The family of this 104-nucleotide RNA sequence from Lysinibacillus odysseyi is "SAM riboswitch aptamer (S box leader)".
Gene Ontology term of the family: regulation of gene expression.
Pairs were carried over by alignment from the consensus structure, which is taken from published work.
[Rfam]
RNA sequence: CUCUUAUAAAGAGCGGUGGAGGGAAGUGCCCUAUGAAGCCCGGCAACCAGUACAUUUGUAAAAAGGUGCCAAGUCACGCAAAGCUAUGCUUUGGAAGAUGAGAG
Numbered sequence: 001c002u003c004u005u006a007u008a009a010a011g012a013g014c015g016g017u018g019g020a021g022g023g024a025a026g027u028g029c030c031c032u033a034u035g036a037a038g039c040c041c042g043g044c045a046a047c048c049a050g051u052a053c054a055u056u057u058g059u060a061a062a063a064a065g066g067u068g069c070c071a072a073g074u075c076a077c078g079c080a081a082a083g084c085u086a087u088g089c090u091u092u093g094g095a096a097g098a099u100g101a102g103a104g
Base pairs, nucleotide, nucleotide: 001104002103003102004101005100006099007098013041015040016039017038021031022030023029026077027076028075042070043069044068045067047066048065051060052059074096079093080092081091082090083089084088